[Rfam]
About this RNA:
The record is a 126-nucleotide RNA sequence from Chitinophagaceae bacterium IBVUCB2, which matches "SAM riboswitch aptamer (S box leader)" in Rfam.

RNA sequence: CACUUAUCAAGAAAGGCAGAGGGUAAUGGCCCGAUGAAGCCUUGACAACCUACUUCCCGUUUUAUAUUUUAAACGAGAGGAAAGGUGCCAAUUCCAACCUGACAGUAAUGUCGGGAUAGAUAAGUC
Numbered sequence: 001c002a003c004u005u006a007u008c009a010a011g012a013a014a015g016g017c018a019g020a021g022g023g024u025a026a027u028g029g030c031c032c033g034a035u036g037a038a039g040c041c042u043u044g045a046c047a048a049c050c051u052a053c054u055u056c057c058c059g060u061u062u063u064a065u066a067u068u069u070u071a072a073a074c075g076a077g078a079g080g081a082a083a084g085g086u087g088c089c090a091a092u093u094c095c096a097a098c099c100u101g102a103c104a105g106u107a108a109u110g111u112c113g114g115g116a117u118a119g120a121u122a123a124g125u126c
Base pairs, nucleotide, nucleotide: 002125003124004123005122006121007120008119013043014042015041016040017039021032022031023030027096028095029094044089046087047086049085050084051081053079054078093118098115099114100113101112102111103110

Notes:
It scores 80 bits against the family's covariance model.